A member of the RNA family "MIR2593 microRNA precursor family" from Medicago truncatula, 114 nucleotides long.

RNA sequence: UUAUAAGAAAAAUCUACAUUUUAGAUUCAUUCAUUAAAUGAUGUAUGCGGUUUAUAAUACAGACUACAUACAUCAUUUAAUGAAUGUAUCUAAAACGUUGAUUUUUGCUUAUAA
Numbered sequence: 001u002u003a004u005a006a007g008a009a010a011a012a013u014c015u016a017c018a019u020u021u022u023a024g025a026u027u028c029a030u031u032c033a034u035u036a037a038a039u040g041a042u043g044u045a046u047g048c049g050g051u052u053u054a055u056a057a058u059a060c061a062g063a064c065u066a067c068a069u070a071c072a073u074c075a076u077u078u079a080a081u082g083a084a085u086g087u088a089u090c091u092a093a094a095a096c097g098u099u100g101a102u103u104u105u106u107g108c109u110u111a112u113a114a
Base pairs, nucleotide, nucleotide: 002113003112004111005110006109007108008106009105010104011103012102014100016098017097019095020094021093022092023091024090026088028086029085030084031083032082033081034080035079036078037077038076039075040074041073042072043071049065050064051063
The source organism's lineage runs through Eukaryota, Viridiplantae, Streptophytina, Euphyllophyta and Medicago.